Record summary: This 80-nucleotide sequence from Electrophorus electricus belongs to the Rfam family "Small nucleolar RNA SNORD79". It scores 71 bits against the family's covariance model. Gene Ontology terms of the family: nucleolus and RNA processing. The literature on the family includes a 1998 paper in Mol Cell Biol by Smith and Steitz, "Classification of gas5 as a multi-small-nucleolar-RNA (snoRNA) host gene and a member of the 5'-terminal oligopyrimidine gene family reveals common features of snoRNA host genes". About the family: snoRNA U79 or Z22 is found in intron 7 of the gas5 gene in humans and is also present in mice. Lineage of the source: Eukaryota > Chordata > Craniata > Osteoglossocephalai > Electrophorus.
[Rfam]
RNA sequence: UACUGUUUAUGAUGAUUGUUCUUAACACAAUGGGAAUCUCUCUGAAUUAACCUGAAAGACAUCUUUGUACUGAAACAGUA
Numbered sequence: 001u002a003c004u005g006u007u008u009a010u011g012a013u014g015a016u017u018g019u020u021c022u023u024a025a026c027a028c029a030a031u032g033g034g035a036a037u038c039u040c041u042c043u044g045a046a047u048u049a050a051c052c053u054g055a056a057a058g059a060c061a062u063c064u065u066u067g068u069a070c071u072g073a074a075a076c077a078g079u080a
Stems, first nucleotide, its partner, number of pairs: 001080007